[Rfam]
This 94-nucleotide RNA from Miscanthus lutarioriparius belongs to the Rfam family "MIR5387 microRNA precursor family". Gene Ontology terms of the family: RISC complex and miRNA-mediated post-transcriptional gene silencing. A search with the family's covariance model found it, with a score of 70 bits.
RNA sequence: UGGUGGCUCCAACCGGGACUAAAGGUCGCUGCCCAACGGCUCCUGCGCCAGGCCGUUGUGGCAGGAGACCUUUAGUCCCGGUUGGAGCCACCAA
Numbered sequence: 001u002g003g004u005g006g007c008u009c010c011a012a013c014c015g016g017g018a019c020u021a022a023a024g025g026u027c028g029c030u031g032c033c034c035a036a037c038g039g040c041u042c043c044u045g046c047g048c049c050a051g052g053c054c055g056u057u058g059u060g061g062c063a064g065g066a067g068a069c070c071u072u073u074a075g076u077c078c079c080g081g082u083u084g085g086a087g088c089c090a091c092c093a094a
Stems, first nucleotide, its partner, number of pairs: 003091025029065002032060001034058001036056002043051002